[Rfam]
RNA sequence: UUCUUCCUUGUCUUGGGGAGCAUAGUGCUGUGUGAUCGUAAGUGAGAGCACUGAUGCUGGCACCCGCAUGUUGCGACAUGACCGCGCCCGGCCGCCGUCAGGGGGACCGAGCGCAAUUUUUAAUG
Numbered sequence: 001u002u003c004u005u006c007c008u009u010g011u012c013u014u015g016g017g018g019a020g021c022a023u024a025g026u027g028c029u030g031u032g033u034g035a036u037c038g039u040a041a042g043u044g045a046g047a048g049c050a051c052u053g054a055u056g057c058u059g060g061c062a063c064c065c066g067c068a069u070g071u072u073g074c075g076a077c078a079u080g081a082c083c084g085c086g087c088c089c090g091g092c093c094g095c096c097g098u099c100a101g102g103g104g105g106a107c108c109g110a111g112c113g114c115a116a117u118u119u120u121u122a123a124u125g
Base pairs, nucleotide, nucleotide: 005019006018007017008016009015020057021056022055023054024052025051026050027049028048029047037042084114085113086112087111089109093103095102096101
Shown here is a 125-nucleotide RNA from Plutella xylostella, a member of the family "U4atac minor spliceosomal RNA". The family has 61 seed sequences and 1,648 matches in Rfam 15.1. NCBI's taxonomy places the organism under Eukaryota, Protostomia, Allotriocarida, Glossata, Plutella. On this family, see Shukla et al., Nucleic Acids Res 2002: "Domains of human U4atac snRNA required for U12-dependent splicing in vivo". The family's consensus secondary structure is taken from published work. A search with the family's covariance model found it, with a score of 54 bits. It is annotated as a spliceosomal small nuclear RNA.